Shown here is a 64-nucleotide RNA, a member of the family "Na+ riboswitch aptamer (DUF1646)". Rfam links the family to the GO terms sodium ion binding and regulation of gene expression. A reference for the family is White et al. (2022), "Na(+) riboswitches regulate genes for diverse physiological processes in bacteria", Nat Chem Biol.

[Rfam]
RNA sequence: GGUUGGGCAAACGCUGUGCAUUCAGCCGUUUGUUUUCAAGACCUAAAGCUUAAGGGUGGAAGCU
Numbered sequence: 001g002g003u004u005g006g007g008c009a010a011a012c013g014c015u016g017u018g019c020a021u022u023c024a025g026c027c028g029u030u031u032g033u034u035u036u037c038a039a040g041a042c043c044u045a046a047a048g049c050u051u052a053a054g055g056g057u058g059g060a061a062g063c064u
Stems, first nucleotide, its partner, number of pairs: 003039003006034008047064005